[Rfam]
RNA: U11 spliceosomal RNA
Organism: Orycteropus afer
RNA sequence: AAAACAGGUUUCUGUCGUGAAGUGGUACACGCAGGGCAUCUACUGCUUUACGUGCAGAAUCCACAUCAAAAGAUUGAGGAAGCGUAAUUUUUGCUACUUGGGCCGCUGGUGAUCUUGGGUCCUGGACCCCUA
Numbered sequence: 001a002a003a004a005c006a007g008g009u010u011u012c013u014g015u016c017g018u019g020a021a022g023u024g025g026u027a028c029a030c031g032c033a034g035g036g037c038a039u040c041u042a043c044u045g046c047u048u049u050a051c052g053u054g055c056a057g058a059a060u061c062c063a064c065a066u067c068a069a070a071a072g073a074u075u076g077a078g079g080a081a082g083c084g085u086a087a088u089u090u091u092u093g094c095u096a097c098u099u100g101g102g103c104c105g106c107u108g109g110u111g112a113u114c115u116u117g118g119g120u121c122c123u124g125g126a127c128c129c130c131u132a
Stems, first nucleotide, its partner, number of pairs: 008083005013027005028054004033049006055078001058075004100130003106125004111121004